[Rfam]
c-di-GMP-I-GGC riboswitch aptamer: an 89-nucleotide RNA sequence from Metabacillus harenarius. The source organism's lineage runs through Bacteria, Bacillati, Bacilli, Caryophanales and Metabacillus.

RNA sequence: ACUGAAAAAGGCAAACUUGUCGAAAGGCAAGGACGCAAAGCUAUGGGCCUACCCAAUGUCAUCAUUGUAUGGUCGCCAAGCUGCCAGGC
Numbered sequence: 001a002c003u004g005a006a007a008a009a010g011g012c013a014a015a016c017u018u019g020u021c022g023a024a025a026g027g028c029a030a031g032g033a034c035g036c037a038a039a040g041c042u043a044u045g046g047g048c049c050u051a052c053c054c055a056a057u058g059u060c061a062u063c064a065u066u067g068u069a070u071g072g073u074c075g076c077c078a079a080g081c082u083g084c085c086a087g088g089c
Stems, first nucleotide, its partner, number of pairs: 003086002011036002016031006034075001039082004044078003047073003
Dot-bracket structure: ..((......((...((((((....))))))..[))..((((.((((((.....................))).])))))))..))...